[Rfam]
RNA sequence: AGCAGCCUAGUGCUUACCACAGGCUGUGUUCUUACACUGACUAUACAGAAAGAUGAAGUACAAUAAACCUACCACAUACACACCCCAAACCAGGCCCUGUGCCUGCCUGGUCUGUACUGUGAAUGGGGGAUAUGG
Numbered sequence: 001a002g003c004a005g006c007c008u009a010g011u012g013c014u015u016a017c018c019a020c021a022g023g024c025u026g027u028g029u030u031c032u033u034a035c036a037c038u039g040a041c042u043a044u045a046c047a048g049a050a051a052g053a054u055g056a057a058g059u060a061c062a063a064u065a066a067a068c069c070u071a072c073c074a075c076a077u078a079c080a081c082a083c084c085c086c087a088a089a090c091c092a093g094g095c096c097c098u099g100u101g102c103c104u105g106c107c108u109g110g111u112c113u114g115u116a117c118u119g120u121g122a123a124u125g126g127g128g129g130a131u132a133u134g135g
Stems, first nucleotide, its partner, number of pairs: 002059002006055001008053001021042002026037004072127002075125003086114002090110006

The family of this 135-nucleotide sequence from Propithecus coquereli is "Small nucleolar RNA SNORA51". A search with the family's covariance model found it, with a score of 99 bits. Gene Ontology terms of the family: nucleolus and RNA processing. From the family's description: ACA51 is a member of the H/ACA class of snoRNA that guide the sites of modification of uridines to pseudouridines. It is annotated as an H/ACA-box small nucleolar RNA.